[Rfam]
RNA sequence: CUCUUAUCCCGAGCUGGUGGAGGGUCAGGCCCUAUGAAACCCGGCAACCUGCAAUAUAUUUUAAAUAAAAUAUAAAGUGUUGGUGCUAAUCCUGAUGCAAGGGAAUUUCCCCUUGAACGAUAAGAG
Numbered sequence: 001c002u003c004u005u006a007u008c009c010c011g012a013g014c015u016g017g018u019g020g021a022g023g024g025u026c027a028g029g030c031c032c033u034a035u036g037a038a039a040c041c042c043g044g045c046a047a048c049c050u051g052c053a054a055u056a057u058a059u060u061u062u063a064a065a066u067a068a069a070a071u072a073u074a075a076a077g078u079g080u081u082g083g084u085g086c087u088a089a090u091c092c093u094g095a096u097g098c099a100a101g102g103g104a105a106u107u108u109c110c111c112c113u114u115g116a117a118c119g120a121u122a123a124g125a126g
Stems, first nucleotide, its partner, number of pairs: 001126008013042001016041003022032003026097002029092001043087004048083002050079003098115006
This 126-nucleotide sequence from Lysinibacillus composti belongs to the Rfam family "SAM riboswitch aptamer (S box leader)".
The source organism's lineage runs through Bacteria, Bacillota, Bacilli, Bacillaceae and Lysinibacillus.
The match comes from Rfam's covariance-model search (70 bits).
The SAM riboswitch is found upstream of a number of genes which code for proteins involved in methionine or cysteine biosynthesis in Gram-positive bacteria. The SAM riboswitch acts at the level of transcription termination control.
The family's consensus secondary structure is taken from published work.